[Rfam]
Overview: A member of the RNA family "mir-723 microRNA precursor family" from Polypterus senegalus, 60 nucleotides long. Taxonomically the source falls in Polypterus (Eukaryota, Eumetazoa, Deuterostomia, Chordata).
RNA sequence: CACAGCUUUGAAUGAUGUUACUUCUUGAUAAUUGCAGAAGACAUCAGAUAAAACUGUGCU
Numbered sequence: 001c002a003c004a005g006c007u008u009u010g011a012a013u014g015a016u017g018u019u020a021c022u023u024c025u026u027g028a029u030a031a032u033u034g035c036a037g038a039a040g041a042c043a044u045c046a047g048a049u050a051a052a053a054c055u056g057u058g059c060u
Stems, first nucleotide, its partner, number of pairs: 002057004007052004013046006021040005